RNA: Glm Y RNA activator of glmS mRNA
Organism: Enterobacter sp. 638
RNA sequence: AGUGGCUCAUUCACCCUCUUAUGUCAGCCCCUUCGGGACGCGCUACAUAAACUUCGAAUGACGCACAAAAAGGUGCCUGCCGUCCAACUACUGAUUAUUGCGUAAGCUUUAUCAGGCUCCGGGCGAAACGUCGAGUAAGGCACCGCCUC
Numbered sequence: 001a002g003u004g005g006c007u008c009a010u011u012c013a014c015c016c017u018c019u020u021a022u023g024u025c026a027g028c029c030c031c032u033u034c035g036g037g038a039c040g041c042g043c044u045a046c047a048u049a050a051a052c053u054u055c056g057a058a059u060g061a062c063g064c065a066c067a068a069a070a071a072g073g074u075g076c077c078u079g080c081c082g083u084c085c086a087a088c089u090a091c092u093g094a095u096u097a098u099u100g101c102g103u104a105a106g107c108u109u110u111a112u113c114a115g116g117c118u119c120c121g122g123g124c125g126a127a128a129c130g131u132c133g134a135g136u137a138a139g140g141c142a143c144c145g146c147c148u149c
Stems, first nucleotide, its partner, number of pairs: 005064002007061006019050006026044003072144007081125005092114004097109001128136002